[Rfam]
Small nucleolar RNA SNORD103/SNORD85: an 80-nucleotide sequence from Trichechus manatus.
The base pairs follow the family's consensus structure.
It scores 47 bits against the family's covariance model.
The source organism's lineage runs through Eukaryota, Theria, Sirenia, Trichechus and Trichechus manatus.
It is annotated as a C/D-box small nucleolar RNA.
RNA sequence: ACUGAUUAUAGGAAUGACACACUUGCCCUCACUGAGAUGAUAGUUUGGUGAUGAGAAUCUUCCUGUUCGUACUUAUCGGU
Numbered sequence: 001a002c003u004g005a006u007u008a009u010a011g012g013a014a015u016g017a018c019a020c021a022c023u024u025g026c027c028c029u030c031a032c033u034g035a036g037a038u039g040a041u042a043g044u045u046u047g048g049u050g051a052u053g054a055g056a057a058u059c060u061u062c063c064u065g066u067u068c069g070u071a072c073u074u075a076u077c078g079g080u
Base pairs, nucleotide, nucleotide: 001080002079003078004077005076006075